[Rfam]
RNA sequence: GGCGUGGCGUUUGCUAAUCCAUCCGUAACGGUAGCCAACGGCGGUUACCCACCUACGACAAAGGCGUCGC
Dot-bracket structure: .............................(((((((......))))))).....................

Rfam assigns this 70-nucleotide sequence from Pseudomonas sp. HPB0071 to the family "narK RNA".